RNA sequence: UAAAAAUCAUACAUGCACCGUCGUAUAAUAUUGGGGAUAUGGCCCAAGAGUUUCUACCGAACUACCGUAAAUGGUUCGACUACGAGGUGAAUUAUCGAUGAU
Numbered sequence: 001u002a003a004a005a006a007u008c009a010u011a012c013a014u015g016c017a018c019c020g021u022c023g024u025a026u027a028a029u030a031u032u033g034g035g036g037a038u039a040u041g042g043c044c045c046a047a048g049a050g051u052u053u054c055u056a057c058c059g060a061a062c063u064a065c066c067g068u069a070a071a072u073g074g075u076u077c078g079a080c081u082a083c084g085a086g087g088u089g090a091a092u093u094a095u096c097g098a099u100g101a102u
Base pairs, nucleotide, nucleotide: 019087021085022084023083024082025081029049031047032046033045034044035043058078059077060076061075062074063073064072

This 102-nucleotide RNA from Pontibacillus yanchengensis belongs to the Rfam family "Purine riboswitch aptamer". Its family is annotated with purine nucleobase biosynthetic process in the Gene Ontology. Lineage of the source: Bacteria > Caryophanales > Bacillaceae > Pontibacillus > Pontibacillus yanchengensis.